Background:
Shown here is a 118-nucleotide RNA sequence from Gracilibacillus dipsosauri, a member of the family "SAM riboswitch aptamer (S box leader)". The base pairs follow the family's consensus structure, which is taken from published work. Rfam describes the family as follows. The SAM riboswitch is found upstream of a number of genes which code for proteins involved in methionine or cysteine biosynthesis in Gram-positive bacteria. A search with the family's covariance model found it, with a score of 87 bits.

[Rfam]
RNA sequence: UUCUUAUCCAGAGAGGUGGAGGGGCAGGCCCAGUGAAUCCUCGGCAACAGGUUCUUACAAAUGAACACUGUGCCAAAUCCUGCGGGACAGCUUUAGGUUGUAUCCCGAAAGAUAAGAA
Numbered sequence: 001u002u003c004u005u006a007u008c009c010a011g012a013g014a015g016g017u018g019g020a021g022g023g024g025c026a027g028g029c030c031c032a033g034u035g036a037a038u039c040c041u042c043g044g045c046a047a048c049a050g051g052u053u054c055u056u057a058c059a060a061a062u063g064a065a066c067a068c069u070g071u072g073c074c075a076a077a078u079c080c081u082g083c084g085g086g087a088c089a090g091c092u093u094u095a096g097g098u099u100g101u102a103u104c105c106c107g108a109a110a111g112a113u114a115a116g117a118a
Stems, first nucleotide, its partner, number of pairs: 001118008013042004021031003025082004043074004048070002051066004078110001083107005
Dot-bracket structure: ((((((((....((((....(((.[[[[))).......))))((((.((.((((........))))..))))))...(]]]](((((...............)))))..)))))))))